[Rfam]
This 58-nucleotide RNA sequence from Salmo salar belongs to the Rfam family "mir-1788 microRNA precursor family". The base pairs follow the family's consensus structure, which was predicted with RNAalifold. The source organism's lineage runs through Eukaryota, Eumetazoa, Vertebrata, Salmonidae and Salmo.
RNA sequence: GGCUUGUUUUAAGUUGCCUGCGACCUGUUUAAAGACUCAGGCAGCUAAAGCAAGUCUG
Numbered sequence: 001g002g003c004u005u006g007u008u009u010u011a012a013g014u015u016g017c018c019u020g021c022g023a024c025c026u027g028u029u030u031a032a033a034g035a036c037u038c039a040g041g042c043a044g045c046u047a048a049a050g051c052a053a054g055u056c057u058g
Base pairs, nucleotide, nucleotide: 001056002055003054004053005052006051007050008049009048010047012046013045014044015043016042017041018040019039020038022036